Background
Rfam assigns this 388-nucleotide RNA from Methylocystis bryophila to the family "Bacterial RNase P class A". It scores 302 bits against the family's covariance model. It is annotated as a ribozyme. Gene Ontology terms of the family: tRNA processing, dimeric ribonuclease P complex and ribonuclease P activity.

RNA sequence: CCAGCCGGCCGGAUGGCCGCCGCGCUUCCCGCGCGGAGGAAAGUCCGGGCUCCACGGAGACACGGCGCCGGAUAACGUCCGGCGGGGGCGACCCCAGGGAAAGCGCCACAGAAAGCAAACCGCCGCGCGUCUCGCGCGGUAAGGGUGAAAGGGUGCGGUAAGAGCGCACCGCUCUCACGGCAACGCGAGAGGCAUGGCAAGCCCCGCCGGGAGCAAGACCGAAUAGGGGCGACCGAAGGCCUAAAAAACCUUCAACCCGUCUCCGGGCUGUCGCCCGGGUUGGUUGCUCGAGACGGCCGGCAACGGUCGUCCUAGAGGAAUGGCCAUCACGCGGGCGCAGGCGACUGCGUCCGCCAUACAGAACCCGGCUUAUAGGCCGGCUGGCGUU
Numbered sequence: 001c002c003a004g005c006c007g008g009c010c011g012g013a014u015g016g017c018c019g020c021c022g023c024g025c026u027u028c029c030c031g032c033g034c035g036g037a038g039g040a041a042a043g044u045c046c047g048g049g050c051u052c053c054a055c056g057g058a059g060a061c062a063c064g065g066c067g068c069c070g071g072a073u074a075a076c077g078u079c080c081g082g083c084g085g086g087g088g089c090g091a092c093c094c095c096a097g098g099g100a101a102a103g104c105g106c107c108a109c110a111g112a113a114a115g116c117a118a119a120c121c122g123c124c125g126c127g128c129g130u131c132u133c134g135c136g137c138g139g140u141a142a143g144g145g146u147g148a149a150a151g152g153g154u155g156c157g158g159u160a161a162g163a164g165c166g167c168a169c170c171g172c173u174c175u176c177a178c179g180g181c182a183a184c185g186c187g188a189g190a191g192g193c194a195u196g197g198c199a200a201g202c203c204c205c206g207c208c209g210g211g212a213g214c215a216a217g218a219c220c221g222a223a224u225a226g227g228g229g230c231g232a233c234c235g236a237a238g239g240c241c242u243a244a245a246a247a248a249c250c251u252u253c254a255a256c257c258c259g260u261c262u263c264c265g266g267g268c269u270g271u272c273g274c275c276c277g278g279g280u281u282g283g284u285u286g287c288u289c290g291a292g293a294c295g296g297c298c299g300g301c302a303a304c305g306g307u308c309g310u311c312c313u314a315g316a317g318g319a320a321u322g323g324c325c326a327u328c329a330c331g332c333g334g335g336c337g338c339a340g341g342c343g344a345c346u347g348c349g350u351c352c353g354c355c356a357u358a359c360a361g362a363a364c365c366c367g368g369c370u371u372a373u374a375g376g377c378c379g380g381c382u383g384g385c386g387u388u
Stems, first nucleotide, its partner, number of pairs: 001384010011373001012328007020036006041371003045368005050213004059262001063209005068082005083097001084095004098204002103202002105198003120144002122140008152170006171193001172191005178185002217285004227276006254269001256267003292311008